Rfam assigns this 46-nucleotide RNA from Owenia fusiformis to the family "Histone 3' UTR stem-loop".

[Rfam]
RNA sequence: CCAACGGCCCUUUUCAGGGCCAACCAAUACUUCAAAAAGAGUUAUG
Numbered sequence: 001c002c003a004a005c006g007g008c009c010c011u012u013u014u015c016a017g018g019g020c021c022a023a024c025c026a027a028u029a030c031u032u033c034a035a036a037a038a039g040a041g042u043u044a045u046g
Base pairs, nucleotide, nucleotide: 006021007020008019009018010017011016
Dot-bracket structure: .....((((((....)))))).........................

Record summary
Rfam classes the family as a cis-regulatory element.